[Rfam]
RNA sequence: UGUCCAACACCCGGGCGCUCCGUAAGGAGCUGAGAUCAGGAUGGUUUCCUGAGCACCGGCCGAACCUGUCACGUUAAUGCGUGCGAAGGAAGUGAGUGGCUUCUUAUG
Number, nucleotide and partner (000 for none) at each position: 001u000002g000003u000004c000005c000006a000007a000008c094009a093010c092011c059012c058013g057014g056015g000016c053017g030018c029019u028020c027021c026022g000023u000024a000025a000026g021027g020028a019029g018030c017031u000032g000033a000034g000035a000036u000037c051038a050039g049040g048041a047042u000043g000044g000045u000046u000047u041048c040049c039050u038051g037052a000053g016054c000055a000056c014057c013058g012059g011060c000061c000062g000063a000064a000065c089066c088067u087068g000069u000070c083071a082072c081073g080074u000075u000076a000077a000078u000079g000080c073081g072082u071083g070084c000085g000086a000087a067088g066089g065090a000091a000092g010093u009094g008095a000096g000097u000098g000099g000100c000101u000102u000103c000104u000105u000106a000107u000108g000
RNA: TPP riboswitch aptamer (THI element)
Organism: Pseudoscardovia suis